[Rfam]
RNA sequence: AGGCUGUCGAGAACCAUUGAAUCACUACAAUACUUGAUUCAAAAGGUUCUCAUAAA
Numbered sequence: 001a002g003g004c005u006g007u008c009g010a011g012a013a014c015c016a017u018u019g020a021a022u023c024a025c026u027a028c029a030a031u032a033c034u035u036g037a038u039u040c041a042a043a044a045g046g047u048u049c050u051c052a053u054a055a056a
Stems, first nucleotide, its partner, number of pairs: 009051007017043001018041007